Rfam assigns this 374-nucleotide sequence from Hephaestia caeni to the family "Bacterial RNase P class A".
From the family's description: Ribonuclease P (RNase P) is a ubiquitous endoribonuclease, found in archaea, bacteria and eukarya as well as chloroplasts and mitochondria.
It scores 287 bits against the family's covariance model.
Lineage of the source: Bacteria > Pseudomonadati > Pseudomonadota > Sphingomonadales > Hephaestia.

[Rfam]
RNA sequence: UCAGAGGGCCGGGCGGCCGCGUUGCGCGUUCGCGCGCACCGAGGAAAGUCCGGGCUCCACGGAAACGACGGUGCCGGGUAACGCUCGGCGGGGGUAACCCCAGGGAAAGUGCCACAGAGAGCAGACCGCCGACGCCCCCCGUGGGCAGGCAAGGGUGAAAGGGUGCGGCAAGAGCGCACCGCGCGGCCGGCAACGGCAGCGGCAUGGCAAACCCCACCGGGAGCAAGACCGAAUAGGGGUGCCACAGGGGCUUUGUUCCGGCCCGGCACCCGGGUUGGUCGCUUGAUCCCGAACGCGAGUUCGGGGCUAGAGGAAUGGUCGCACAUCCCGCUUUGGCGGGAGGACAAAACCCGGCUUACAGGCCCUCUGACGCC
Numbered sequence: 001u002c003a004g005a006g007g008g009c010c011g012g013g014c015g016g017c018c019g020c021g022u023u024g025c026g027c028g029u030u031c032g033c034g035c036g037c038a039c040c041g042a043g044g045a046a047a048g049u050c051c052g053g054g055c056u057c058c059a060c061g062g063a064a065a066c067g068a069c070g071g072u073g074c075c076g077g078g079u080a081a082c083g084c085u086c087g088g089c090g091g092g093g094g095u096a097a098c099c100c101c102a103g104g105g106a107a108a109g110u111g112c113c114a115c116a117g118a119g120a121g122c123a124g125a126c127c128g129c130c131g132a133c134g135c136c137c138c139c140c141g142u143g144g145g146c147a148g149g150c151a152a153g154g155g156u157g158a159a160a161g162g163g164u165g166c167g168g169c170a171a172g173a174g175c176g177c178a179c180c181g182c183g184c185g186g187c188c189g190g191c192a193a194c195g196g197c198a199g200c201g202g203c204a205u206g207g208c209a210a211a212c213c214c215c216a217c218c219g220g221g222a223g224c225a226a227g228a229c230c231g232a233a234u235a236g237g238g239g240u241g242c243c244a245c246a247g248g249g250g251c252u253u254u255g256u257u258c259c260g261g262c263c264c265g266g267c268a269c270c271c272g273g274g275u276u277g278g279u280c281g282c283u284u285g286a287u288c289c290c291g292a293a294c295g296c297g298a299g300u301u302c303g304g305g306g307c308u309a310g311a312g313g314a315a316u317g318g319u320c321g322c323a324c325a326u327c328c329c330g331c332u333u334u335g336g337c338g339g340g341a342g343g344a345c346a347a348a349a350c351c352c353g354g355c356u357u358a359c360a361g362g363c364c365c366u367c368u369g370a371c372g373c374c
Base pairs, nucleotide, nucleotide: 001370002369003368004367005366006365007364008363009362010361011359013322014321015320016319017318018317020041021040023038024037025036026035027034028033046357047356048355050354051353052352053351054350055223056222057221058220064257065256066255067254069219070218071217072216073215074088075087076086077085078084089103090101091100092099093098104214105213109212110211111208112207113206126154127153128150129149130148133145135143162180163179164178165177166176167175181203182201183200184199186197187196188195189194227280228279229278230277237271238270239269240268241267242266248264249263250262251261252260287306288305289304290303291302292301293300294299